[Rfam]
About this RNA
The family of this 68-nucleotide sequence from Aerolutibacter daejeonensis is "int-alpA RNA". About the family: Acidobacteria (1 example), Planctomycetes (1 example), Proteobacteria.
RNA sequence: CCCGCACCUAGUCCGACGGGACGAAAAGUCGGUGACCCUGCCGGCCUGGUGCGGGACUCUUUCAGGGG
Numbered sequence: 001c002c003c004g005c006a007c008c009u010a011g012u013c014c015g016a017c018g019g020g021a022c023g024a025a026a027a028g029u030c031g032g033u034g035a036c037c038c039u040g041c042c043g044g045c046c047u048g049g050u051g052c053g054g055g056a057c058u059c060u061u062u063c064a065g066g067g068g
Stems, first nucleotide, its partner, number of pairs: 001055008011022004028045005036068004
Pairs were carried over by alignment from the consensus structure, which is taken from published work. It is annotated as a small RNA.